A member of the RNA family "COG3860 RNA" from Chitinimonas sp. BJB300, 56 nucleotides long. It scores 63 bits against the family's covariance model. Lineage of the source: Bacteria > Pseudomonadota > Betaproteobacteria > Neisseriales > Chitinimonas. The base pairs follow the family's consensus structure, which is taken from published work.
RNA sequence: UGGUCGGCAGUUCACCCAGGCGUCGCCGGUUCAAUCGAACCACGCUAAACCUGCUC
Numbered sequence: 001u002g003g004u005c006g007g008c009a010g011u012u013c014a015c016c017c018a019g020g021c022g023u024c025g026c027c028g029g030u031u032c033a034a035u036c037g038a039a040c041c042a043c044g045c046u047a048a049a050c051c052u053g054c055u056c
Base pairs, nucleotide, nucleotide: 002016003015004014029040030039031038032037